[Rfam]
Rfam assigns this 57-nucleotide RNA sequence to the family "Glutamine riboswitch aptamer (glnA leader)". The sequence is in the family's curated seed alignment.
RNA sequence: AUCGUUCAAUUUGCUGAAAAGUAAAUCGGAAGUAGGGUAAAACUGAAGGAACGCGGA
Numbered sequence: 001a002u003c004g005u006u007c008a009a010u011u012u013g014c015u016g017a018a019a020a021g022u023a024a025a026u027c028g029g030a031a032g033u034a035g036g037g038u039a040a041a042a043c044u045g046a047a048g049g050a051a052c053g054c055g056g057a
Base pairs, nucleotide, nucleotide: 003053004052005051006050007049009026010025011024012023013022014021015020029054035044036043